Notes: A member of the RNA family "Burkholderia sRNA Bp1_Cand871_SIPHT" from Trinickia dabaoshanensis, 233 nucleotides long. The base pairs follow the family's consensus structure, which was predicted with CMfinder. NCBI's taxonomy places the organism under Bacteria, Pseudomonadota, Betaproteobacteria, Burkholderiaceae, Trinickia.

RNA sequence: UCGCCCACAAUGCCCCUCAACGGUUUCAACACGGAUGUGUCGGCGUUUGGGUUGCUGCAAAAUGAGAUGCAGCAAAGCAUGAGCCGAUUGGCGACCGAAUGGUUUCGGGCAUCUCUGUUGGAGUCGUUGCCGCCACGCAGCAGUGAGUUGUGUGCAGCGGCUCCUUCGUUGGUCUCCUCGCGCUAACCCCGUAGCGUGUGGUUUUUAGCGGGCUAUCAAGCCCGCUUUUUUUU
Numbered sequence: 001u002c003g004c005c006c007a008c009a010a011u012g013c014c015c016c017u018c019a020a021c022g023g024u025u026u027c028a029a030c031a032c033g034g035a036u037g038u039g040u041c042g043g044c045g046u047u048u049g050g051g052u053u054g055c056u057g058c059a060a061a062a063u064g065a066g067a068u069g070c071a072g073c074a075a076a077g078c079a080u081g082a083g084c085c086g087a088u089u090g091g092c093g094a095c096c097g098a099a100u101g102g103u104u105u106c107g108g109g110c111a112u113c114u115c116u117g118u119u120g121g122a123g124u125c126g127u128u129g130c131c132g133c134c135a136c137g138c139a140g141c142a143g144u145g146a147g148u149u150g151u152g153u154g155c156a157g158c159g160g161c162u163c164c165u166u167c168g169u170u171g172g173u174c175u176c177c178u179c180g181c182g183c184u185a186a187c188c189c190c191g192u193a194g195c196g197u198g199u200g201g202u203u204u205u206u207a208g209c210g211g212g213c214u215a216u217c218a219a220g221c222c223c224g225c226u227u228u229u230u231u232u233u
Stems, first nucleotide, its partner, number of pairs: 005172003019128013033114006042085003046082001052075004057070003095108004131154003176201002179198007207226008